A member of the RNA family "mir-1 microRNA precursor family" from Laticauda laticaudata, 76 nucleotides long. This family represents the microRNA (miRNA) mir-1 family. miRNAs are transcribed as ~70nt precursors (modelled here) and subsequently processed by the Dicer enzyme to give a ~22nt product. In this case the mature sequence comes from the 3' arm of the precursor. The extents of the hairpin precursors are not generally known and are estimated based on hairpin prediction. The products are thought to have regulatory roles through complementarity to mRNA. The involvement of Dicer in miRNA processing suggests a relationship with the phenomenon of RNA interference. miRNAs are numbered based on the sequence of the mature RNA. This family also contains the mir-206 from human, which appears to be related to mir-1. The match comes from Rfam's covariance-model search (52 bits). The source organism's lineage runs through Eukaryota, Craniata, Sauropsida, Squamata and Laticauda. For this family Rfam cites "An extensive class of small RNAs in Caenorhabditis elegans" (Lee and Ambros, Science, 2001).
[Rfam]
Nucleotides: 076
Base pairs, nucleotide, nucleotide: 007070008069010067011066012065013064014063015062016061017060018059020057021056022055024053027049028048029047030046031045
Number, partner (000 for none) and nucleotide at each position: 001000u002000c003000u004000g005000a006000a007070a008069c009000c010067a011066c012065a013064c014063a015062c016061u017060u018059c019000c020057u021056u022055a023000c024053a025000u026000u027049c028048c029047a030046u031045a032000a033000u034000a035000a036000u037000g038000u039000a040000a041000u042000u043000c044000a045031u046030a047029u048028g049027g050000g051000a052000u053024u054000a055022u056021a057020a058000a059018g060017a061016a062015g063014u064013g065012u066011g067010u068000u069008g070007u071000c072000c073000c074000a075000a076000a